Annotation: Rfam assigns this 115-nucleotide RNA sequence from Strongylocentrotus purpuratus to the family "Potassium channel RNA editing signal". This family represents a group of sequences related to the human potassium channel Kv1.1 hairpin element which directs the efficient modification of an adenosine to inosine by an adenosine deaminase acting on RNA (ADAR). For this family Rfam cites "Control of human potassium channel inactivation by editing of a small mRNA hairpin" (Bhalla et al., Nat Struct Mol Biol, 2004). The family's RNA type in Rfam is cis-regulatory element. Its family is annotated with adenosine to inosine editing in the Gene Ontology.
RNA sequence: AUGCAGAUAUGGUGACAUCGUGCCGCAGUCCAUCAUAGGUAAAAUUGUAGGUGGAGUUUGCGCACUGUCCGGGGUUCUUGUAAUAGCGUUGCCAGUUCCUGUUAUCGUCUCCAAU
Numbered sequence: 001a002u003g004c005a006g007a008u009a010u011g012g013u014g015a016c017a018u019c020g021u022g023c024c025g026c027a028g029u030c031c032a033u034c035a036u037a038g039g040u041a042a043a044a045u046u047g048u049a050g051g052u053g054g055a056g057u058u059u060g061c062g063c064a065c066u067g068u069c070c071g072g073g074g075u076u077c078u079u080g081u082a083a084u085a086g087c088g089u090u091g092c093c094a095g096u097u098c099c100u101g102u103u104a105u106c107g108u109c110u111c112c113a114a115u
Stems, first nucleotide, its partner, number of pairs: 001115002006111001009108004014103004020097001022096002038078002041075001051063002